[Rfam]
Nucleotides: 092
Base pairs, nucleotide, nucleotide: 028049029048030047031046032045033044034043035042036041054086055085056084057083058082059081060080061079062078063077064076065075
Number, partner (000 for none) and nucleotide at each position: 001000g002000g003000u004000a005000u006000a007000g008000u009000a010000a011000a012000g013000c014000c015000a016000g017000a018000a019000a020000a021000g022000g023000a024000u025000u026000g027000c028049g029048g030047g031046g032045g033044u034043c035042a036041u037000c038000a039000c040000g041036a042035u043034g044033a045032c046031c047030c048029u049028c050000a051000u052000c053000u054086g055085c056084c057083c058082u059081g060080g061079u062078a063077a064076c065075u066000u067000u068000c069000c070000c071000u072000c073000c074000u075065a076064g077063u078062u079061g080060c081059c082058a083057g084056g085055g086054u087000g088000u089000u090000u091000u092000u
Shown here is a 92-nucleotide RNA from Geobacter sp. SVR, a member of the family "atoC RNA". It is annotated as a cis-regulatory element.